[Rfam]
RNA sequence: GGGGCAAUGAUGAAACCUUUGCCCUAAUUCUAGAGAUGUGUUGUCUUAAAUGUCAUGCAAAAUAUAAUUACGCUUAGGACCC
Numbered sequence: 001g002g003g004g005c006a007a008u009g010a011u012g013a014a015a016c017c018u019u020u021g022c023c024c025u026a027a028u029u030c031u032a033g034a035g036a037u038g039u040g041u042u043g044u045c046u047u048a049a050a051u052g053u054c055a056u057g058c059a060a061a062a063u064a065u066a067a068u069u070a071c072g073c074u075u076a077g078g079a080c081c082c
Base pairs, nucleotide, nucleotide: 001082002081003080006074008072009071